[Rfam]
RNA: Small nucleolar RNA SNORD2
Organism: Parascaris univalens
RNA sequence: GCGUGCAGUGAUGGUUACCAUCUUUCGGGUCUGAUCGUGAUGACACCCUUUUUACUGAGCACGC
Number, nucleotide and partner (000 for none) at each position: 001g064002c063003g062004u061005g060006c059007a000008g000009u000010g000011a000012u000013g000014g000015u000016u000017a000018c000019c000020a000021u000022c000023u000024u000025u000026c000027g000028g000029g000030u000031c000032u000033g000034a000035u000036c000037g000038u000039g000040a000041u000042g000043a000044c000045a000046c000047c000048c000049u000050u000051u000052u000053u000054a000055c000056u000057g000058a000059g006060c005061a004062c003063g002064c001